A member of the RNA family "tRNA" from Waltiozyma pijperi, 73 nucleotides long. Rfam's curators put it in the seed alignment. Lineage of the source: Eukaryota > Opisthokonta > Ascomycota > Saccharomycotina > Waltiozyma.

[Rfam]
RNA sequence: AGAAUUAUAGCUUAAUCUGGUAAAGCAGUCCACUCAUAAUGGACCUAUCAAAGUUCAAUUCUUUGUUAUUCUA
Numbered sequence: 001a002g003a004a005u006u007a008u009a010g011c012u013u014a015a016u017c018u019g020g021u022a023a024a025g026c027a028g029u030c031c032a033c034u035c036a037u038a039a040u041g042g043a044c045c046u047a048u049c050a051a052a053g054u055u056c057a058a059u060u061c062u063u064u065g066u067u068a069u070u071c072u073a
Base pairs, nucleotide, nucleotide: 001072002071003070004069005068007066010026011025012024013023028044029043030042031041032040049065050064051063052062053061
Rfam classes the family as a transfer RNA.